Description:
The record is a 219-nucleotide RNA sequence from Miscanthus lutarioriparius, which matches "MIR6217 microRNA precursor family" in Rfam. Rfam links the family to the GO terms RISC complex and miRNA-mediated post-transcriptional gene silencing. The family has 2 seed sequences and 2,266 matches in Rfam 15.1. The organism belongs to Miscanthus, within Eukaryota. The match comes from Rfam's covariance-model search (139 bits).

RNA sequence: UGACCAUAGAAUAACUUAUUUUAUGGCCACUUUAAGUUAUGAUAAUUACUAUUUUAAUUUACGAGAUUACAGUAACUCUUUACUAAGUGAUUUACUAUAACAUUAUGGUAAAUAUCACUGUGAGUUGUAGUAACACGAGUAUCGUAAAUGCAUAUUCAUGUUAUCGUAAAUUGGUACAAACAUUAUCGUAAAUCAAGGUGGCUAUAUAAUAAGUUAUCA
Numbered sequence: 001u002g003a004c005c006a007u008a009g010a011a012u013a014a015c016u017u018a019u020u021u022u023a024u025g026g027c028c029a030c031u032u033u034a035a036g037u038u039a040u041g042a043u044a045a046u047u048a049c050u051a052u053u054u055u056a057a058u059u060u061a062c063g064a065g066a067u068u069a070c071a072g073u074a075a076c077u078c079u080u081u082a083c084u085a086a087g088u089g090a091u092u093u094a095c096u097a098u099a100a101c102a103u104u105a106u107g108g109u110a111a112a113u114a115u116c117a118c119u120g121u122g123a124g125u126u127g128u129a130g131u132a133a134c135a136c137g138a139g140u141a142u143c144g145u146a147a148a149u150g151c152a153u154a155u156u157c158a159u160g161u162u163a164u165c166g167u168a169a170a171u172u173g174g175u176a177c178a179a180a181c182a183u184u185a186u187c188g189u190a191a192a193u194c195a196a197g198g199u200g201g202c203u204a205u206a207u208a209a210u211a212a213g214u215u216a217u218c219a
Base pairs, nucleotide, nucleotide: 011217012216013215014214015213016212017211018210019209020208022206023205024204025203026202027201028200029199030198031197032196033195037191038190039189040188041187042186043185044184045183046182050178052176054174055173056172057171058170059169060168061167062166065165066164067163069161070160071159072157074155079148080147081146082145083144087142088141089140091138092137093132094131095130096129097128098127099126100125101124103122108116